This 269-nucleotide RNA from Aureliella helgolandensis belongs to the Rfam family "Group II catalytic intron D1-D4-6". Pairs were carried over by alignment from the consensus structure. It scores 77 bits against the family's covariance model. NCBI's taxonomy places the organism under Bacteria, Planctomycetota, Planctomycetia, Pirellulaceae, Aureliella. Gene Ontology term of the family: Group II intron splicing.

RNA sequence: UGAAUCCCGCAUGAGUAGCUGCUAGCCCCAGGCUCAUUAUUUGGGCUUGCAACCGAAGUAUAAGGCGUCAUGCCGAAGUCGUCGGUUGAUGUGUAGCCAAGAAAGGUAGCGAGGAUGAAAGGUAGGGACUGGCUGUCCCGCCCAGAACGAGAUUGAGCUCCGAAAUUCGGUUUCUGUUGGAAUCUGCCCAAGGUCUUUGCAUGCUGGAAGGGAAUACUCACCGUCGCGCUCUUGGCGAGCGGCAGUGGGAGUCCCGGAGUCGAAGAUCC
Numbered sequence: 001u002g003a004a005u006c007c008c009g010c011a012u013g014a015g016u017a018g019c020u021g022c023u024a025g026c027c028c029c030a031g032g033c034u035c036a037u038u039a040u041u042u043g044g045g046c047u048u049g050c051a052a053c054c055g056a057a058g059u060a061u062a063a064g065g066c067g068u069c070a071u072g073c074c075g076a077a078g079u080c081g082u083c084g085g086u087u088g089a090u091g092u093g094u095a096g097c098c099a100a101g102a103a104a105g106g107u108a109g110c111g112a113g114g115a116u117g118a119a120a121g122g123u124a125g126g127g128a129c130u131g132g133c134u135g136u137c138c139c140g141c142c143c144a145g146a147a148c149g150a151g152a153u154u155g156a157g158c159u160c161c162g163a164a165a166u167u168c169g170g171u172u173u174c175u176g177u178u179g180g181a182a183u184c185u186g187c188c189c190a191a192g193g194u195c196u197u198u199g200c201a202u203g204c205u206g207g208a209a210g211g212g213a214a215u216a217c218u219c220a221c222c223g224u225c226g227c228g229c230u231c232u233u234g235g236c237g238a239g240c241g242g243c244a245g246u247g248g249g250a251g252u253c254c255c256g257g258a259g260u261c262g263a264a265g266a267u268c269c
Base pairs, nucleotide, nucleotide: 012036013035014034015033019031020030021029023238025236026235038103040101041100044098045097046096047095048093049092050088051087052086053085054084055083056082154263155261157260158259159258160257161256162255179254180253181252184251185250187211188210192205193204194203217249218248219247220246221245223243224242225241226240227239